The record is a 64-nucleotide RNA sequence from Patiria miniata, which matches "Selenocysteine insertion sequence 1" in Rfam. Rfam 15.1 lists 3,793 matches to the family in 721 species. It is annotated as a cis-regulatory element. NCBI's taxonomy places the organism under Eukaryota, Eumetazoa, Asterozoa, Asteroidea, Patiria.
[Rfam]
RNA sequence: CUGUGCGUAUGACGGCCACAAGCCUAAACCAUUCACUGGCGGCUUGUGCCUGAUGUAGAGACAG
Dot-bracket structure: ((((.........(((.(((((((....(((.....))).))))))))))..........))))